[Rfam]
RNA sequence: GUCAAUUACCCCAUGCCCUUUAGGGUAUAUGCUUGUGAAAACAAGUCAGUUGAUUAGCCUGAGUCUUAAGCGACUACGUUAUUUUAGCAGGUAUACUAAUAAGUUAAACUUAAUCAUUUCAUUUUUAACCUAGAAUAAUUCACUAGUUCUAGGCCUAAAGUCAAUGGUUAAACAUAUCUAAAGAUAUAAAAAGUACUGUUGAUAUACAAAAUCUAUUAUAACAUUGGCAAAGUGGACUUAUC
Number, nucleotide and partner (000 for none) at each position: 001g054002u053003c052004a051005a050006u049007u048008a000009c000010c031011c000012c000013a028014u027015g000016c000017c024018c023019u000020u000021u000022a000023g018024g017025g000026u000027a014028u013029a000030u000031g010032c045033u044034u043035g042036u000037g000038a000039a000040a000041a000042c035043a034044a033045g032046u000047c000048a007049g006050u005051u004052g003053a002054u001055u000056a000057g228058c227059c226060u000061g224062a075063g074064u073065c072066u000067u000068a000069a000070g000071c000072g065073a064074c063075u062076a000077c000078g222079u221080u220081a219082u218083u000084u000085u215086a214087g213088c000089a000090g000091g000092u000093a000094u000095a000096c000097u000098a000099a000100u000101a000102a000103g000104u000105u000106a000107a000108a000109c000110u000111u000112a000113a000114u000115c000116a000117u000118u000119u000120c000121a000122u000123u000124u000125u158126u157127a000128a000129c153130c152131u151132a150133g149134a148135a147136u146137a238138a000139u236140u235141c234142a233143c232144u231145a000146g136147u135148u134149c133150u132151a131152g130153g129154c000155c000156u000157a126158a125159a000160g203161u202162c201163a200164a199165u198166g197167g196168u195169u000170a000171a000172a194173c193174a000175u191176a000177u189178c000179u186180a185181a000182a000183g000184a000185u180186a179187u000188a000189a177190a000191a175192a000193g173194u172195a168196c167197u166198g165199u164200u163201g162202a161203u160204a000205u000206a000207c000208a000209a000210a000211a000212u000213c087214u086215a085216u000217u000218a082219u081220a080221a079222c078223a000224u061225u000226g059227g058228c057229a000230a000231a144232g143233u142234g141235g140236a139237c000238u137239u000240a000241u000242c000

A member of the RNA family "HNH endonuclease-associated RNA and ORF (HEARO) RNA" from Candidatus Epulonipiscium fishelsonii, 242 nucleotides long. By type it is a non-coding RNA gene. A reference for the family is Weinberg et al. (2009), "Exceptional structured noncoding RNAs revealed by bacterial metagenome analysis", Nature. Pairs were carried over by alignment from the consensus structure, which is taken from published work. The organism belongs to Candidatus Epulonipiscium, within Bacteria. The match comes from Rfam's covariance-model search (89 bits).